[Rfam]
RNA sequence: GUCUUCUCUCCAUCCACGCCCUGUGUCAGAAACUCCCAUCCACCGCCCAGAGGGCUUGCUCUCUGCGGCGGUGUGCAUCGGUUGAGAUUCUGACAGCUCGUCCAUCAUGGAGCCUUCUUCUUUCUCGGUAGAAGGUUUCGGACGACAGGAGCGCAGAACAACAUUGGCAGCUUCCCGCAGCCUGAGCUCACCGCAAGGUUCGAGCUCGGUGUAAGGAUGUCUGCCAGGCAGACUGAUUCCGUCUCCCUUUUGCUAGGCCGUCGGCCGUUGAUGCUUGGGACUAACCCAGUCGGCUACAUAU
Numbered sequence: 001g002u003c004u005u006c007u008c009u010c011c012a013u014c015c016a017c018g019c020c021c022u023g024u025g026u027c028a029g030a031a032a033c034u035c036c037c038a039u040c041c042a043c044c045g046c047c048c049a050g051a052g053g054g055c056u057u058g059c060u061c062u063c064u065g066c067g068g069c070g071g072u073g074u075g076c077a078u079c080g081g082u083u084g085a086g087a088u089u090c091u092g093a094c095a096g097c098u099c100g101u102c103c104a105u106c107a108u109g110g111a112g113c114c115u116u117c118u119u120c121u122u123u124c125u126c127g128g129u130a131g132a133a134g135g136u137u138u139c140g141g142a143c144g145a146c147a148g149g150a151g152c153g154c155a156g157a158a159c160a161a162c163a164u165u166g167g168c169a170g171c172u173u174c175c176c177g178c179a180g181c182c183u184g185a186g187c188u189c190a191c192c193g194c195a196a197g198g199u200u201c202g203a204g205c206u207c208g209g210u211g212u213a214a215g216g217a218u219g220u221c222u223g224c225c226a227g228g229c230a231g232a233c234u235g236a237u238u239c240c241g242u243c244u245c246c247c248u249u250u251u252g253c254u255a256g257g258c259c260g261u262c263g264g265c266c267g268u269u270g271a272u273g274c275u276u277g278g279g280a281c282u283a284a285c286c287c288a289g290u291c292g293g294c295u296a297c298a299u300a301u
Stems, first nucleotide, its partner, number of pairs: 017153003020149005025094006033086003036081002038078002040075001042072006048065007102144001105141002109139002112136003164223001166221001178211002181208001184207006191198002228294002231291005244280004252274002256266004

A member of the RNA family "A. fumigatus sRNA Afu_309" from Curvularia clavata, 301 nucleotides long. It scores 98 bits against the family's covariance model. The family's RNA type in Rfam is small RNA. The family has 10 seed sequences and 663 matches in Rfam 15.1.